[Rfam]
RNA: MIR7486 microRNA precursor family
Nucleotides: 087
Stems, first nucleotide, its partner, number of pairs: 001086021024063003029058005035052002038049001
Number, partner (000 for none) and nucleotide at each position: 001086c002085a003084c004083g005082u006081c007080a008079g009078c010077g011076c012075g013074c014073u015072a016071u017070g018069c019068u020067g021066a022000c023000a024063u025062g026061g027000c028000a029058a030057c031056a032055a033054a034000g035052c036051g037000c038049g039000g040000c041000c042000u043000u044000g045000a046000a047000a048000g049038c050000a051036u052035g053000a054033u055032u056031u057030g058029u059000g060000u061026c062025c063024a064000c065000g066021u067020c068019a069018g070017c071016a072015u073014a074013g075012u076011g077010c078009g079008u080007u081006g082005a083004c084003g085002u086001g087000g